[Rfam]
RNA sequence: ACUUAACUUUUAACCCAAGUGGGGGCAUUAGUGUGAUGGAACAUGGUUUUGGUUCAUUGGGUUGGGCUGAGUUGUACUCUAUUCUGGCCUGCCCGCUUGAAGUUGAGAGUUGGGCCAUGGGAUUUGGGCGAAGGCCUAAAUAUCCUGGUCUCUAGAAUAGAGGGAACCGCAUAAGGCUGGCUUUACAGAGCAGUGAACACCUCCUGCUCUUGACAGUGAAGGGAUAACAGGCUGAUGUACUCUCAGUCCACAUAAUCUGAUGGGCUUAGCACAUUGAACCAUCACUUUU
Dot-bracket structure: .............(((....)))......((.(((((((..((((.((..(..((((((((((((((((((..(((.(......(((((((.((.(((.(.(((((((((.((((((.((.((((((((....)))))))).)).))))))........((((......(((....(((......)))....)))....))))..)))))))))..).)))))....)))))))..)))).))))))))....)))))))))).)..))..)).))..))))))).)).